[Rfam]
Eukaryotic small subunit ribosomal RNA: a 594-nucleotide part of an RNA from Otus sunia. Taxonomically the source falls in Otus (Eukaryota, Archelosauria, Archosauria, Coelurosauria). Clan: SSU clan. Pairs were carried over by alignment from the consensus structure, which is taken from published work.
Nucleotides: 594
Base pairs, nucleotide, nucleotide: 001584002583004581005580006579007578008577009576010575013453015451019446020413026411030408032406035068036067040066041065042064047060048059075366076365077364086292087291090288091287094286095285100281101280102279120153123150129141130140131139132138161182162181163180168175169174187241188240189239190238191237200229201228202227203226212219213218253274254273255272256271258270259269260268261267295343296342297341302334303333304332309331310330311329312328313327314326344360345356346355347354348353369388371386391402393400394399419444421443422442423441427439428438429437459490460489461488462486463485464484465483466482467481469478470477471476497517498516527573529571530570531569532568540567541566542565543564550555
Number, partner (000 for none) and nucleotide at each position: 001584g002583g003000a004581a005580u006579a007578u008577g009576c010575u011000u012000g013453u014000c015451u016000c017000a018000g019446a020413g021000c022000u023000u024000a025000a026411g027000c028000g029000a030408u031000c032406u033000g034000u035068g036067u037000c038000c039000a040066a041065g042064u043000a044000u045000g046000c047060a048059c049000g050000g051000g052000u053000g054000g055000u056000a057000c058000a059048g060047u061000g062000a063000a064042a065041c066040u067036g068035c069000g070000a071000a072000u073000g074000g075366c076365u077364c078000c079000u080000u081000a082000a083000a084000u085000u086292a087291g088000u089000u090288a091287u092000a093000g094286u095285u096000c097000c098000u099000u100281u101280g102279g103000u104000c105000g106000c107000u108000c109000c110000u111000c112000u113000c114000g115000c116000a117000c118000u119000c120153u121000u122000g123150g124000g125000a126000u127000a128000a129141c130140u131139g132138g133000u134000a135000a136000c137000u138132c139131u140130a141129g142000c143000a144000c145000u146000a147000a148000u149000a150123c151000a152000u153120g154000u155000u156000g157000a158000u159000g160000a161182g162181c163180a164000c165000c166000a167000g168175c169174c170000u171000c172000c173000a174169g175168g176000g177000a178000c179000a180163u181162g182161u183000g184000c185000a186000u187241u188240u189239g190238u191237c192000a193000g194000a195000c196000c197000a198000a199000a200229a201228c202227u203226g204000a205000c206000c207000c208000a209000g210000g211000c212219c213218c214000g215000c216000c217000c218213g219212g220000c221000a222000g223000u224000u225000u226203u227202g228201g229200u230000g231000a232000c233000u234000c235000u236000a237191g238190a239189u240188g241187a242000c243000c244000c245000u246000g247000a248000g249000c250000u251000g252000a253274u254273u255272g256271c257000c258270c259269g260268u261267c262000c263000c264000c265000g266000c267261g268260g269259u270258g271256g272255c273254a274253g275000u276000g277000a278000c279102c280101c281100a282000u283000u284000c285095a286094g287091a288090u289000g290000u291087c292086u293000c294000c295343c296342c297341u298000a299000u300000c301000a302334a303333c304332u305000u306000u307000c308000a309331g310330u311329g312328g313327u314326a315000c316000u317000g318000a319000c320000u321000g322000u323000g324000c325000c326314u327313a328312c329311c330310g331309u332304g333303g334302u335000g336000a337000c338000c339000a340000c341297a342296g343295g344360g345356g346355a347354g348353u349000c350000a351000g352000c353348a354347u355346u356345c357000a358000a359000u360344u361000g362000c363000a364077g365076a366075g367000a368000g369388g370000g371386a372000a373000a374000c375000u376000g377000a378000g379000a380000a381000a382000c383000g384000g385000c386371u387000g388369c389000a390000a391402u392000g393400u394399c395000c396000a397000a398000g399394g400393a401000a402391g403000g404000c405000a406032g407000c408030a409000g410000a411026c412000g413020c414000a415000c416000a417000a418000a419444u420000c421443a422442c423441c424000c425000a426000c427439u428438c429437c430000c431000a432000a433000c434000c435000c436000a437429g438428g439427g440000a441423g442422g443421u444419a445000g446019u447000g448000a449000c450000a451015a452000a453013a454000a455000a456000u457000a458000a459490c460489a461488a462486u463485a464484c465483a466482g467481g468000a469478c470477u471476c472000g473000u474000u475000u476471g477470a478469g479000g480000c481467c482466c483465u484464g485463u486462a487000a488461u489460u490459g491000g492000a493000a494000u495000g496000a497517g498516u499000g500000c501000a502000c503000u504000u505000u506000a507000c508000a509000u510000c511000c512000u513000c514000g515000a516498g517497c518000g519000a520000g521000g522000a523000u524000c525000c526000a527573u528000c529571g530570g531569a532568g533000g534000g535000c536000a537000a538000g539000u540567c541566u542565g543564g544000u545000g546000c547000u548000a549000c550555c551000a552000g553000c554000c555550g556000u557000g558000g559000u560000a561000a562000u563000u564543c565542c566541a567540g568532c569531u570530c571529c572000a573527a574000u575010a576009g577008c578007a579006u580005a581004u582000c583002u584001u585000a586000a587000a588000c589000u590000u591000g592000c593000c594000g